This 94-nucleotide sequence from Desulfosudis oleivorans belongs to the Rfam family "Selenocysteine transfer RNA". Rfam links the family to the GO term triplet codon-amino acid adaptor activity. Clan: tRNA clan. Pairs were carried over by alignment from the consensus structure, which is taken from published work.
[Rfam]
RNA sequence: UGACCGGUAUAGUCGGCUGGCGCCGGCCGCGGGCUUCAACCCCGCCGGGCAACCGUGAAAAGUCUGCCGCUUGGUUCGAUUCCAAGACCGGUCU
Numbered sequence: 001u002g003a004c005c006g007g008u009a010u011a012g013u014c015g016g017c018u019g020g021c022g023c024c025g026g027c028c029g030c031g032g033g034c035u036u037c038a039a040c041c042c043c044g045c046c047g048g049g050c051a052a053c054c055g056u057g058a059a060a061a062g063u064c065u066g067c068c069g070c071u072u073g074g075u076u077c078g079a080u081u082c083c084a085a086g087a088c089c090g091g092u093c094u
Base pairs, nucleotide, nucleotide: 002093003092004091005090006089007088008087012027013026014025015024016023017022029045030044031043032042033041048068049067050066051065071085072084073083074082